RNA sequence: CAUUUCGUUAGGGAUUCAUUAGGUAUUAGAAUCGUACUGUAGCGUUGCGUAAUCCAGUCAUAUGGAUUUGAGUGGCUCCUAUCCACUCUGUUCGACGCCUCCCUGUUAGAACUUGAGCCGCGGCUUCCGCGGCUCUUUUUUG
Numbered sequence: 001c002a003u004u005u006c007g008u009u010a011g012g013g014a015u016u017c018a019u020u021a022g023g024u025a026u027u028a029g030a031a032u033c034g035u036a037c038u039g040u041a042g043c044g045u046u047g048c049g050u051a052a053u054c055c056a057g058u059c060a061u062a063u064g065g066a067u068u069u070g071a072g073u074g075g076c077u078c079c080u081a082u083c084c085a086c087u088c089u090g091u092u093c094g095a096c097g098c099c100u101c102c103c104u105g106u107u108a109g110a111a112c113u114u115g116a117g118c119c120g121c122g123g124c125u126u127c128c129g130c131g132g133c134u135c136u137u138u139u140u141u142g
Base pairs, nucleotide, nucleotide: 001049003047005014006013016042020041021040053066054065055064056063070088071087072086073085074084075083094107095106096105097104115135116134117133118132119131120130121129122128123127
Dot-bracket structure: (.(.((......)).(...((..................)))....).)...((((......))))...((((((.......)))))).....((((......)))).......(((((((((...))))))))).......
The record is a 142-nucleotide RNA from Tepidicaulis marinus, which matches "Alphaproteobacterial sRNA BjrC1505" in Rfam. The family's RNA type in Rfam is small RNA. Lineage of the source: Bacteria > Pseudomonadati > Alphaproteobacteria > Parvibaculaceae > Tepidicaulis. For this family Rfam cites "Small RNAs of the Bradyrhizobium/Rhodopseudomonas lineage and their analysis" (Madhugiri et al., RNA Biol, 2012).